[Rfam]
RNA sequence: AUGACGCACGCGGGAGAGCCCCGGAGCAAUCCGGGCACCGAAGGAGCAAGCCUCCCCGCCAAUCUCUCAGGUCCGCGUACCGCGCGCGUCCG
Number, nucleotide and partner (000 for none) at each position: 001a000002u000003g000004a000005c000006g087007c086008a000009c084010g083011c082012g081013g080014g000015a000016g000017a000018g000019c000020c035021c034022c033023g032024g000025a000026g000027c000028a000029a000030u000031c000032c023033g022034g021035g020036c000037a072038c071039c070040g068041a067042a000043g000044g066045a065046g064047c000048a000049a000050g059051c058052c000053u000054c000055c000056c000057c000058g051059c050060c000061a000062a000063u000064c046065u045066c044067u041068c040069a000070g039071g038072u037073c000074c000075g000076c000077g000078u000079a000080c013081c012082g011083c010084g009085c000086g007087c006088g000089u000090c000091c000092g000
RNA: Glycine riboswitch aptamer
Organism: Microbacterium sp. Yaish 1